The family of this 76-nucleotide sequence from Gambusia affinis is "mir-1788 microRNA precursor family". It scores 86 bits against the family's covariance model. The source organism's lineage runs through Eukaryota, Bilateria, Vertebrata, Gnathostomata and Gambusia. Its family is annotated with miRNA-mediated post-transcriptional gene silencing and RISC complex in the Gene Ontology.
RNA sequence: UAGCUUCCAAGGCUUGUUUUAAGUUGCCUGCGACUUGUACUUGGACACAGGCAGCUAAAGCAAGUCUGGGACGCUG
Numbered sequence: 001u002a003g004c005u006u007c008c009a010a011g012g013c014u015u016g017u018u019u020u021a022a023g024u025u026g027c028c029u030g031c032g033a034c035u036u037g038u039a040c041u042u043g044g045a046c047a048c049a050g051g052c053a054g055c056u057a058a059a060g061c062a063a064g065u066c067u068g069g070g071a072c073g074c075u076g
Stems, first nucleotide, its partner, number of pairs: 003074002006071003010067011022056009032046001